[Rfam]
RNA sequence: GCAGAGUAGGUUUGUGUGCGUUAAGUGCUGGUUGAACAGGGAGUUGUCAGCCGGACGAAAAGAUUUUCUUGCGGUACACGAAUCGCAUCCCGCUGC
Numbered sequence: 001g002c003a004g005a006g007u008a009g010g011u012u013u014g015u016g017u018g019c020g021u022u023a024a025g026u027g028c029u030g031g032u033u034g035a036a037c038a039g040g041g042a043g044u045u046g047u048c049a050g051c052c053g054g055a056c057g058a059a060a061a062g063a064u065u066u067u068c069u070u071g072c073g074g075u076a077c078a079c080g081a082a083u084c085g086c087a088u089c090c091c092g093c094u095g096c
Base pairs, nucleotide, nucleotide: 001096002095003094004093009084010083011082012081013080014079015078016077017076018075019073020072021071025056026055028054029053030052031051032050033049034048035047039090040089041088043086060070061069062068